[Rfam]
RNA sequence: UUCUGAAGUUUUUCUCAGUAGUUAACUGCAGUCGGUUCCAUAAUUCAGCAGUUAACUACCGAUGGACAU
Numbered sequence: 001u002u003c004u005g006a007a008g009u010u011u012u013u014c015u016c017a018g019u020a021g022u023u024a025a026c027u028g029c030a031g032u033c034g035g036u037u038c039c040a041u042a043a044u045u046c047a048g049c050a051g052u053u054a055a056c057u058a059c060c061g062a063u064g065g066a067c068a069u
Stems, first nucleotide, its partner, number of pairs: 012065002015062002018059012
Description: This 69-nucleotide sequence from Medicago truncatula belongs to the Rfam family "MIR2629 microRNA precursor family". Taxonomically the source falls in Medicago (Eukaryota, Streptophyta, Spermatophyta, Magnoliopsida). Its family is annotated with RISC complex and miRNA-mediated post-transcriptional gene silencing in the Gene Ontology.